[Rfam]
RNA sequence: GUUGAAUAUGCGCUGAAUUUUCCGAAGGAAAAACGGGGGAACCAAACUUGACCCUUAGGGUCAAAGGGGUGAAUCAGAAGAGGUCAUCAUGACCAAUCUGUAGGGCUUUCCACAGCCCGAAUCCGCCAGCUAACCUCGUAAGCAAAGGUGGGAUAAUGA
Number, nucleotide and partner (000 for none) at each position: 001g000002u000003u000004g000005a000006a000007u000008a000009u000010g000011c000012g143013c142014u141015g000016a000017a000018u032019u031020u030021u029022c028023c000024g000025a000026a000027g000028g022029a021030a020031a019032a018033a139034c138035g137036g136037g135038g134039g000040a000041a000042c000043c066044a000045a000046a000047c000048u000049u000050g000051a000052c000053c000054c000055u000056u000057a000058g000059g000060g000061u000062c000063a000064a000065a000066g043067g124068g123069g122070u000071g000072a000073a000074u000075c100076a099077g098078a097079a000080g000081a000082g000083g000084u000085c000086a000087u000088c000089a000090u000091g000092a000093c000094c000095a000096a000097u078098c077099u076100g075101u000102a000103g118104g117105g116106c115107u000108u000109u000110c000111c000112a000113c000114a000115g106116c105117c104118c103119g000120a000121a000122u069123c068124c067125g000126c000127c000128a000129g000130c000131u000132a000133a000134c038135c037136u036137c035138g034139u033140a000141a014142g013143c012144a000145a000146a000147g000148g000149u000150g000151g000152g000153a000154u000155a000156a000157u000158g000159a000